[Rfam]
RNA sequence: AGCACUAGUUUUAAGCCUGCUGGUGGAAUUUCCUGGCCACCGUGGGUUACGCUGUAGUGCAACAGAACCUCCUGGCUCUUCAGAGCACAGCUGACCUGGAUCAUUCAGCUGGUGCUCCUCUGAAGCUGAGGAACACAG
Numbered sequence: 001a002g003c004a005c006u007a008g009u010u011u012u013a014a015g016c017c018u019g020c021u022g023g024u025g026g027a028a029u030u031u032c033c034u035g036g037c038c039a040c041c042g043u044g045g046g047u048u049a050c051g052c053u054g055u056a057g058u059g060c061a062a063c064a065g066a067a068c069c070u071c072c073u074g075g076c077u078c079u080u081c082a083g084a085g086c087a088c089a090g091c092u093g094a095c096c097u098g099g100a101u102c103a104u105u106c107a108g109c110u111g112g113u114g115c116u117c118c119u120c121u122g123a124a125g126c127u128g129a130g131g132a133a134c135a136c137a138g
Stems, first nucleotide, its partner, number of pairs: 002060006014048004021042006070132004074127004079122001082119001085115003088111004093106002
Overview
The record is a 138-nucleotide RNA from Galbula dea, which matches "Small nucleolar RNA SNORA46" in Rfam. The match comes from Rfam's covariance-model search (91 bits). It is annotated as an H/ACA-box small nucleolar RNA. Taxonomically the source falls in Galbula (Eukaryota, Eumetazoa, Dipnotetrapodomorpha, Dinosauria). Rfam describes the family as follows. ACA46 is a member of the H/ACA class of snoRNA that guide the sites of modification of uridines to pseudouridines.